Rfam assigns this 68-nucleotide RNA sequence from Cytobacillus depressus to the family "Bacillaceae-1 RNA". It is annotated as a small RNA. The source organism's lineage runs through Bacteria, Bacillati, Bacilli, Bacillaceae and Cytobacillus. Pairs were carried over by alignment from the consensus structure, which is taken from published work.
RNA sequence: UGCGAAGGAACAUCGACUAAAAACCGCCACGUCCUGUGGCGAACGUCGAUGUCAGCACAUCCUGUGCA
Numbered sequence: 001u002g003c004g005a006a007g008g009a010a011c012a013u014c015g016a017c018u019a020a021a022a023a024c025c026g027c028c029a030c031g032u033c034c035u036g037u038g039g040c041g042a043a044c045g046u047c048g049a050u051g052u053c054a055g056c057a058c059a060u061c062c063u064g065u066g067c068a
Base pairs, nucleotide, nucleotide: 011051012050013049014048015047016046017045026040027039028038029037030036055067056066057065058064